[Rfam]
RNA sequence: CUUUCUACAUUUGUACCUCAAUGAAAAACAAUACAAAAAAUACAUGGUGGUGGAACUCUCUUAUUAAAUAAGUGAGAAGUAUACUAUAUGUAAAAAUAUAAUAAAAAGGCUUAUC
Numbered sequence: 001c002u003u004u005c006u007a008c009a010u011u012u013g014u015a016c017c018u019c020a021a022u023g024a025a026a027a028a029c030a031a032u033a034c035a036a037a038a039a040a041u042a043c044a045u046g047g048u049g050g051u052g053g054a055a056c057u058c059u060c061u062u063a064u065u066a067a068a069u070a071a072g073u074g075a076g077a078a079g080u081a082u083a084c085u086a087u088a089u090g091u092a093a094a095a096a097u098a099u100a101a102u103a104a105a106a107a108g109g110c111u112u113a114u115c
Stems, first nucleotide, its partner, number of pairs: 036097001041092006049085004056079002058076003061071003
A member of the RNA family "Bacteroidete tryptophan peptide leader RNA" from Polaribacter sp. KT25b, 115 nucleotides long. Pairs were carried over by alignment from the consensus structure, which is taken from published work. Its family is annotated with S-adenosylmethionine metabolic process and regulation of gene expression in the Gene Ontology.